[Rfam]
RNA sequence: GGCUCAGUGAUUAAAAUGCCUGAUGGCAAUAUACGCUAUUCUGAUUAUAUACAUGAGCAGAUAAUCAAUUACAUGAGAGCU
Numbered sequence: 001g002g003c004u005c006a007g008u009g010a011u012u013a014a015a016a017u018g019c020c021u022g023a024u025g026g027c028a029a030u031a032u033a034c035g036c037u038a039u040u041c042u043g044a045u046u047a048u049a050u051a052c053a054u055g056a057g058c059a060g061a062u063a064a065u066c067a068a069u070u071a072c073a074u075g076a077g078a079g080c081u
Base pairs, nucleotide, nucleotide: 001081002080003079004078005077
RNA: Small nucleolar RNA U54